[Rfam]
RNA: Bacterial large signal recognition particle RNA
Organism: Halobacillus halophilus
RNA sequence: UCGUGCUAAGCGGGGAGGUAGCGGUGCCCUAUACUCGCAAUCCGCUAUAGCGAGGCCGAAUUCCCACCCGAGGUGGCAAGGUCUCAAGGCCUGCCUCAUGUGAGUGGUGUUGACAUUCAGGUCCUGCGCAACGAGAACCAGUGAACCCUGUCAGGUCCGGAAGGAAGCAGCAGUAAGCUGAUCAUCUCGUGUGCCGCGGGAGUGCCUGGAUAGAGCCACAACCAUGAGUAACGCUUGGGGCCUCGCCAUCGAAGGUGGGUGCACGG
Numbered sequence: 001u002c003g004u005g006c007u008a009a010g011c012g013g014g015g016a017g018g019u020a021g022c023g024g025u026g027c028c029c030u031a032u033a034c035u036c037g038c039a040a041u042c043c044g045c046u047a048u049a050g051c052g053a054g055g056c057c058g059a060a061u062u063c064c065c066a067c068c069c070g071a072g073g074u075g076g077c078a079a080g081g082u083c084u085c086a087a088g089g090c091c092u093g094c095c096u097c098a099u100g101u102g103a104g105u106g107g108u109g110u111u112g113a114c115a116u117u118c119a120g121g122u123c124c125u126g127c128g129c130a131a132c133g134a135g136a137a138c139c140a141g142u143g144a145a146c147c148c149u150g151u152c153a154g155g156u157c158c159g160g161a162a163g164g165a166a167g168c169a170g171c172a173g174u175a176a177g178c179u180g181a182u183c184a185u186c187u188c189g190u191g192u193g194c195c196g197c198g199g200g201a202g203u204g205c206c207u208g209g210a211u212a213g214a215g216c217c218a219c220a221a222c223c224a225u226g227a228g229u230a231a232c233g234c235u236u237g238g239g240g241c242c243u244c245g246c247c248a249u250c251g252a253a254g255g256u257g258g259g260u261g262c263a264c265g266g
Stems, first nucleotide, its partner, number of pairs: 001266006010056002012030004017025001019023001034054005063259006072250005079243010092230002095228006104222002106217003115211008123200006129191002132189005137182001139180004148173004156165003